[Rfam]
RNA sequence: UUGCCCACUUGAGGUUGUUGAUGUCUUGAGUGGCCAUUAUUAAGGGGUAGACUAUUAUCCUCUCUAAAAACCUGGGUCAGGGGUCUCACCUCUGCCUCUGGACCUGUUGAGAGGAACAAAC
Numbered sequence: 001u002u003g004c005c006c007a008c009u010u011g012a013g014g015u016u017g018u019u020g021a022u023g024u025c026u027u028g029a030g031u032g033g034c035c036a037u038u039a040u041u042a043a044g045g046g047g048u049a050g051a052c053u054a055u056u057a058u059c060c061u062c063u064c065u066a067a068a069a070a071c072c073u074g075g076g077u078c079a080g081g082g083g084u085c086u087c088a089c090c091u092c093u094g095c096c097u098c099u100g101g102a103c104c105u106g107u108u109g110a111g112a113g114g115a116a117c118a119a120a121c
Stems, first nucleotide, its partner, number of pairs: 002049005009042001014038001016036002019030001058115001060113005071100001074097004080091002083089002
Shown here is a 121-nucleotide RNA sequence from Dicentrarchus labrax, a member of the family "Small nucleolar RNA SNORA26".
By type it is an H/ACA-box small nucleolar RNA.
Rfam's curators write: The snoRNA HBI-6 belong to the H/ACA family of snoRNAs, guiding the pseudouridylation of position U4522 if the 28S rRNA. HBI-6 is the human orthologue of mouse MBI-6 snoRNA.
It scores 42 bits against the family's covariance model.